[Rfam]
Description:
The family of this 139-nucleotide RNA sequence from Loxodonta africana is "Small nucleolar RNA SNORA8". Rfam links the family to the GO terms RNA processing and nucleolus. Its Rfam clan is "SNORA8 clan". Lineage of the source: Eukaryota > Metazoa > Craniata > Sarcopterygii > Loxodonta. Rfam describes the family as follows. ACA8 is a member of the H/ACA class of snoRNA that guide the sites of modification of uridines to pseudouridines. It is annotated as an H/ACA-box small nucleolar RNA.
RNA sequence: UGCACUGCAUGGUAUCUGCAUUCAGCAGUUCACUCCUGCUGGGAUGUUCCAAGGACAGUGCGACAGAAAUUCAGUAGCUGGCAUCGUUGGUUUUCUUGGCUUUGUGCAUGUUAAACCUGGUAUUUCUAUUGGUACAGUU
Dot-bracket structure: .((((((.......((((((((((((((.......))))).))))))....))).))))))...((((((((((......((((...................)))).........)))).))))))............